[Rfam]
RNA sequence: ACUGCCUCAUGAAUAACCAGCUGCUUAGUAUAUUUGCAUUUGGUUCAGACUGGGGCACAUAGCAAAUAGAAUCUUUUUUGAGGGAAGGGGCCUGAUUUUCUGUUCAUCCCUUCUUAGAUAGAUUCUGAUAUGA
Dot-bracket structure: ..((((((......((((((.(.(...........).).))))))......))))))..........((((((.(((..(((.(.(((((.......)))).)......))))..)))..)))))).......
Small nucleolar RNA snoR138: a 133-nucleotide RNA sequence from Oryza sativa. It scores 51 bits against the family's covariance model. Rfam links the family to the GO terms RNA processing and nucleolus.